[Rfam]
RNA: Bradyrhizobiaceae sRNA BjrC174
Organism: Microvirga alba
RNA sequence: UUCACAGCCCUGUUAGCCGGAUCUUAUUGUUGCCGUAUUCGUGCCGCGUGGUGGCCCCACUGGAUGACGAUAACAUCAUCGUUGCCUCGACGGCCCGGCUCAUCGUUUGAUUCGGACACGUCAGCCCCCCAGCCCGCCGGGUCAUUUGGUAGGCCGGGCCAAUUUUAAGUCGAGGUUUAGACCGCCCCCCAAAGGGCGGUCUUUUU
Numbered sequence: 001u002u003c004a005c006a007g008c009c010c011u012g013u014u015a016g017c018c019g020g021a022u023c024u025u026a027u028u029g030u031u032g033c034c035g036u037a038u039u040c041g042u043g044c045c046g047c048g049u050g051g052u053g054g055c056c057c058c059a060c061u062g063g064a065u066g067a068c069g070a071u072a073a074c075a076u077c078a079u080c081g082u083u084g085c086c087u088c089g090a091c092g093g094c095c096c097g098g099c100u101c102a103u104c105g106u107u108u109g110a111u112u113c114g115g116a117c118a119c120g121u122c123a124g125c126c127c128c129c130c131a132g133c134c135c136g137c138c139g140g141g142u143c144a145u146u147u148g149g150u151a152g153g154c155c156g157g158g159c160c161a162a163u164u165u166u167a168a169g170u171c172g173a174g175g176u177u178u179a180g181a182c183c184g185c186c187c188c189c190c191a192a193a194g195g196g197c198g199g200u201c202u203u204u205u206u
Stems, first nucleotide, its partner, number of pairs: 036174001038050001040048002084170002087167001089165002092160009103149002108144008124133002179202008